About this RNA: The family of this 103-nucleotide sequence from Falsiruegeria litorea is "Pyrrolysine insertion sequence mttB". By type it is a cis-regulatory element. For this family Rfam cites "Effects of using coding potential, sequence conservation and mRNA structure conservation for predicting pyrroly-sine containing genes" (Theil Have et al., BMC Bioinformatics, 2013). It scores 49 bits against the family's covariance model.
RNA sequence: AUGACGGACGCCAAAGAGCCAGACGCGCAGGCAGGCUAUGAAAAGGGCUAUACCGUCGCCUUGGCCGCACAGGCCGGAGCGGACAUGAUCAACCUGAGCGUCG
Numbered sequence: 001a002u003g004a005c006g007g008a009c010g011c012c013a014a015a016g017a018g019c020c021a022g023a024c025g026c027g028c029a030g031g032c033a034g035g036c037u038a039u040g041a042a043a044a045g046g047g048c049u050a051u052a053c054c055g056u057c058g059c060c061u062u063g064g065c066c067g068c069a070c071a072g073g074c075c076g077g078a079g080c081g082g083a084c085a086u087g088a089u090c091a092a093c094c095u096g097a098g099c100g101u102c103g
Stems, first nucleotide, its partner, number of pairs: 003012001025032001033062003077101001079099002